A member of the RNA family "Lysine riboswitch aptamer" from Fusobacterium necrogenes, 175 nucleotides long. The organism belongs to Fusobacterium, within Bacteria. A reference for the family is Mandal et al. (2003), "Riboswitches Control Fundamental Biochemical Pathways in Bacillus subtilis and Other Bacteria", Cell.
RNA sequence: AGACAGGAUAGAGGAGCAAAGGACAAGAGUAGAAGUAUCUAGCUUGGCAGGCGUUAUGAUAUUUUGAAAGGGGAAUUUGCCGAAAUAAAGGAGAGGGCUGAACUCUUUUGUUGGCAGUGUGGAGAAUAUCUACAAUGUUGUCAUUGAAAAUUUUCAAUGGAGAGCUAUCUGUGAG
Number, nucleotide and partner (000 for none) at each position: 001a000002g000003a000004c000005a000006g170007g169008a168009u167010a166011g165012a000013g000014g000015a000016g080017c079018a078019a077020a076021g000022g000023a000024c072025a000026a000027g000028a000029g000030u000031a000032g065033a064034a063035g062036u061037a060038u059039c058040u000041a000042g000043c000044u000045u000046g000047g000048c000049a000050g000051g000052c000053g000054u000055u000056a000057u000058g039059a038060u037061a036062u035063u034064u033065u032066g000067a000068a000069a000070g000071g000072g024073g000074a000075a000076u020077u019078u018079g017080c016081c000082g000083a000084a112085a111086u110087a109088a108089a107090g106091g105092a104093g103094a000095g000096g000097g000098c000099u000100g000101a000102a000103c093104u092105c091106u090107u089108u088109u087110g086111u085112u084113g139114g138115c137116a136117g000118u134119g133120u132121g131122g130123a129124g000125a000126a000127u000128a000129u123130c122131u121132a120133c119134a118135a000136u116137g115138u114139u113140g000141u160142c159143a158144u157145u156146g155147a154148a000149a000150a000151u000152u000153u000154u147155c146156a145157a144158u143159g142160g141161a000162g000163a000164g000165c011166u010167a009168u008169c007170u006171g000172u000173g000174a000175g000